[Rfam]
RNA: tRNA
Organism: Opitutaceae bacterium TAV4
RNA sequence: GCGCCACUAGUAUAUCGGUUAUUAUGUGUGCUUCCCAAGCAUGAGAGGACGGUUCGAUUCCGUCGUGGCGCA
Numbered sequence: 001g002c003g004c005c006a007c008u009a010g011u012a013u014a015u016c017g018g019u020u021a022u023u024a025u026g027u028g029u030g031c032u033u034c035c036c037a038a039g040c041a042u043g044a045g046a047g048g049a050c051g052g053u054u055c056g057a058u059u060c061c062g063u064c065g066u067g068g069c070g071c072a
Stems, first nucleotide, its partner, number of pairs: 001071007010025003027043005048064005
Dot-bracket structure: (((((((..(((..........))).(((((.......)))))....(((((.......)))))))))))).